A member of the RNA family "rne-II RNA" from Pseudomonas sp. TTU2014-080ASC, 270 nucleotides long.
[Rfam]
RNA sequence: AUACGUGUAGGGUGGAGAUGCACAACUGUUGGUCUGCGUAGCAAUUUGCUUUACCAAGACGCGUUACCCGUCCGCUACCAACAGCUGAUUCCUCCUCCUGACUUAAUGCUUACUGGAAAUCACAGCAAGCAGGAGACGUCCGUCGCGGACCAGCAAAAUGCUGCCGCCGCUUGACACUGGAGCGCUUUACGACCGCACCAGCGACGCCCCUGACACCGACAACUGAAGUCGUGUGUGCCGAACGCCGCUUCCGCUAGCACCGGAAAUCGA
Numbered sequence: 001a002u003a004c005g006u007g008u009a010g011g012g013u014g015g016a017g018a019u020g021c022a023c024a025a026c027u028g029u030u031g032g033u034c035u036g037c038g039u040a041g042c043a044a045u046u047u048g049c050u051u052u053a054c055c056a057a058g059a060c061g062c063g064u065u066a067c068c069c070g071u072c073c074g075c076u077a078c079c080a081a082c083a084g085c086u087g088a089u090u091c092c093u094c095c096u097c098c099u100g101a102c103u104u105a106a107u108g109c110u111u112a113c114u115g116g117a118a119a120u121c122a123c124a125g126c127a128a129g130c131a132g133g134a135g136a137c138g139u140c141c142g143u144c145g146c147g148g149a150c151c152a153g154c155a156a157a158a159u160g161c162u163g164c165c166g167c168c169g170c171u172u173g174a175c176a177c178u179g180g181a182g183c184g185c186u187u188u189a190c191g192a193c194c195g196c197a198c199c200a201g202c203g204a205c206g207c208c209c210c211u212g213a214c215a216c217c218g219a220c221a222a223c224u225g226a227a228g229u230c231g232u233g234u235g236u237g238c239c240g241a242a243c244g245c246c247g248c249u250u251c252c253g254c255u256a257g258c259a260c261c262g263g264a265a266a267u268c269g270a
Stems, first nucleotide, its partner, number of pairs: 014095004023087002026084007036075003040050003058072004096134005137206004142175003145170004152162003179199002182196003213236004217231004247267001249265005
It is annotated as a cis-regulatory element.
The family's consensus secondary structure is taken from published work.